The family of this 70-nucleotide RNA from Loktanella salsilacus is "Singlet oxygen resistance RNA X".
SorX (RSs2461)like SorY is a singlet oxygen induced sRNA that counteracts oxidative stress by targeting mRNA for a transporter in Rhodobacter. It also has an impact on resistance against organic hydroperoxides. It targets SD sequence of potA mRNA via an aSD sequence. The aSD sequence and some neighbouring nucleotides are identical to the one of SorY (targets takP mRNA).
The family has 8 seed sequences and 528 matches in Rfam 15.1.
Lineage of the source: Bacteria > Pseudomonadati > Alphaproteobacteria > Roseobacteraceae > Loktanella.
It scores 71 bits against the family's covariance model.
[Rfam]
RNA sequence: AUCCCGCGCCACCGGGUAAUGUGGCACCCUCCCUGUUGGACUUGCCCGGGCCUUGUGCCCGGGUUUUUUU
Numbered sequence: 001a002u003c004c005c006g007c008g009c010c011a012c013c014g015g016g017u018a019a020u021g022u023g024g025c026a027c028c029c030u031c032c033c034u035g036u037u038g039g040a041c042u043u044g045c046c047c048g049g050g051c052c053u054u055g056u057g058c059c060c061g062g063g064u065u066u067u068u069u070u
Base pairs, nucleotide, nucleotide: 008025009024010023011022012021044064045063046062047061048060049059050058051057
Dot-bracket structure: .......(((((........)))))..................((((((((.....))))))))......